The family of this 73-nucleotide sequence from Candidula unifasciata is "mir-219 microRNA precursor family". The family's consensus secondary structure was predicted with RNAalifold. Its family is annotated with RISC complex and miRNA-mediated post-transcriptional gene silencing in the Gene Ontology. Lineage of the source: Eukaryota > Gastropoda > Heterobranchia > Euthyneura > Candidula.
[Rfam]
RNA sequence: UCUGGCUAUGAUUGUCCAAACGCAAUUCUUGCUACAAUCUGGCCAAGAACUGUGCGUGGACAUCAGUGCUUGA
Numbered sequence: 001u002c003u004g005g006c007u008a009u010g011a012u013u014g015u016c017c018a019a020a021c022g023c024a025a026u027u028c029u030u031g032c033u034a035c036a037a038u039c040u041g042g043c044c045a046a047g048a049a050c051u052g053u054g055c056g057u058g059g060a061c062a063u064c065a066g067u068g069c070u071u072g073a
Base pairs, nucleotide, nucleotide: 002072004070005069006068009065010064011063012062014061015060016059017058018057021054022053023052024051026049027048028047029046030045031044